[Rfam]
Nucleotides: 117
Stems, first nucleotide, its partner, number of pairs: 009044001013032006060110004065105002070103003075098004081091004
Number, partner (000 for none) and nucleotide at each position: 001000a002000a003000g004000c005000a006000a007000c008000a009044c010000a011000a012000g013032c014031a015030g016029a017028u018027g019000a020000u021000c022000a023000a024000a025000a026000c027018u028017g029016u030015c031014u032013g033000a034000c035000a036000c037000a038000a039000u040000u041000u042000g043000a044009g045000c046000u047000u048000g049000c050000a051000a052000u053000a054000g055000c056000a057000a058000g059000a060110a061109a062108g063107u064000c065105u066104a067000a068000c069000u070103u071102a072101u073000a074000c075098u076097g077096g078095u079000g080000u081091u082090c083089u084088c085000c086000a087000u088084g089083a090082g091081a092000a093000a094000a095078a096077c097076u098075g099000u100000u101072a102071u103070a104066u105065a106000a107063a108062c109061u110060u111000a112000a113000a114000c115000a116000a117000u
The record is a 117-nucleotide RNA sequence from Jaculus jaculus, which matches "Small nucleolar RNA SNORA28" in Rfam. Rfam's curators write: ACA28 is a member of the H/ACA class of snoRNA that guide the sites of modification of uridines to pseudouridines. NCBI's taxonomy places the organism under Eukaryota, Eumetazoa, Teleostomi, Sarcopterygii, Jaculus. The family's consensus secondary structure was predicted with RNAfold. A reference for the family is Huttenhofer et al. (2001), "RNomics: an experimental approach that identifies 201 candidates for novel, small, non-messenger RNAs in mouse", EMBO J. A search with the family's covariance model found it, with a score of 87 bits.